A member of the RNA family "Mitochondrial DNA control region secondary structure A", 106 nucleotides long. The family has 53 seed sequences and 795 matches in Rfam 15.1. It is one of the family's seed sequences.
RNA sequence: UUCUUUCAUGGGGAGGCAAAUUUGGGUACCACCCAAGUAUUGGCUAACCCAUCAAUAAUUAUCAUGUAUGUCGUGCAUUCCUGCCAGACACCAUGAAUAAUGCACA
Dot-bracket structure: ....((((((((...(((...((((((...))))))((.((((........))))..))....(((((.....)))))...)))....).))))))).........